mir-9193 microRNA precursor family: a 126-nucleotide RNA from Myotis davidii.

[Rfam]
RNA sequence: CAUGCACCAGUGGGGUCCCUCGGACUGGUCUGUGGGAAUUGGGCUGAAAUUGGCAGUCUAACCUCCCCAAUGGGUUCCAGAUUGCGAGAGGGUGCAGGCCAGGCCGAGGGACCCCACUGGUGCACA
Dot-bracket structure: ..((.(.(((.((((((((((((.(.((((((((..........................................................)))))))).).)))))))))))).))).).))..
The organism belongs to Myotis, within Eukaryota.
The family has 2 seed sequences and 6,008 matches in Rfam 15.1.
The match comes from Rfam's covariance-model search (56 bits).